A member of the RNA family "U4 spliceosomal RNA" from Apiosordaria backusii, 132 nucleotides long. Rfam's curators write: U4 small nuclear RNA (U4 snRNA) is a component of the major U2-dependent spliceosome. The source organism's lineage runs through Eukaryota, Ascomycota, Pezizomycotina, sordariomyceta and Apiosordaria. For this family Rfam cites "Structures of the fully assembled Saccharomyces cerevisiae spliceosome before activation" (Bai et al., Science, 2018). The family's consensus secondary structure is taken from published work. Its Rfam clan is "U4 clan".
[Rfam]
RNA sequence: AUCCAAGUGCAGGGGUUUUACGCGUAUCAGUGAGGAUUCGUCCGAGAUCGCGUUUUUGCUAGUUGAAAACUACAUACCUGACCGCUCUUGUUGGGACUUGUUCCUGGCAGGGAAUUUUUGGAACAUCAACUU
Dot-bracket structure: ...................(((((.(((.....(((....)))..))))))))................................(((((((((((.....)))))))))))....................